[Rfam]
Nucleotides: 037
Stems, first nucleotide, its partner, number of pairs: 002021004010036003
Number, partner (000 for none) and nucleotide at each position: 001000u002021a003020g004019g005018c006000g007000g008000a009000a010036a011035c012034u013000g014000a015000a016000a017000a018005g019004c020003c021002u022000u023000a024000g025000a026000a027000u028000a029000g030000a031000g032000u033000a034012g035011g036010u037000a
Annotation: This 37-nucleotide RNA sequence from Aureispira anguillae belongs to the Rfam family "DUF805b RNA". A search with the family's covariance model found it, with a score of 44 bits. Pairs were carried over by alignment from the consensus structure, which is taken from published work. By type it is a cis-regulatory element.